mir-67 microRNA precursor family: a 78-nucleotide RNA sequence from Soboliphyme baturini. On this family, see Cao et al., Insect Biochem Mol Biol 2008: "Identification of conserved microRNAs in Bombyx mori (silkworm) and regulation of fibroin L chain production by microRNAs in heterologous system". Gene Ontology terms of the family: RISC complex and miRNA-mediated post-transcriptional gene silencing.

[Rfam]
RNA sequence: UUGGUCGAUGCCUCACUCAGUCGGUUGUUAUGAGAAAAUUUUUGUCAUCACAACCUCCAUGAGUGAGUCAUUGCGACA
Numbered sequence: 001u002u003g004g005u006c007g008a009u010g011c012c013u014c015a016c017u018c019a020g021u022c023g024g025u026u027g028u029u030a031u032g033a034g035a036a037a038a039u040u041u042u043u044g045u046c047a048u049c050a051c052a053a054c055c056u057c058c059a060u061g062a063g064u065g066a067g068u069c070a071u072u073g074c075g076a077c078a
Base pairs, nucleotide, nucleotide: 010068012067013066014065015064016063017062018061019060023055024054026052027051028050030048031047032046